The record is an 82-nucleotide RNA sequence from Gordonia rhizosphera, which matches "Actinobacteria sRNA Ms_AS-4" in Rfam. Pairs were carried over by alignment from the consensus structure. A search with the family's covariance model found it, with a score of 50 bits. By type it is a small RNA.

RNA sequence: CUUGCUGUGGCGGAACCGGUGUGGAUCGUCUCCGAACUCGGCGAGCACCCGGGGGCCCAGGGUCGGCCCCAUGCCGGGCUGA
Numbered sequence: 001c002u003u004g005c006u007g008u009g010g011c012g013g014a015a016c017c018g019g020u021g022u023g024g025a026u027c028g029u030c031u032c033c034g035a036a037c038u039c040g041g042c043g044a045g046c047a048c049c050c051g052g053g054g055g056c057c058c059a060g061g062g063u064c065g066g067c068c069c070c071a072u073g074c075c076g077g078g079c080u081g082a
Base pairs, nucleotide, nucleotide: 008044010042011041013039018038019037020036022034023033024032025031055079056078057077060075061074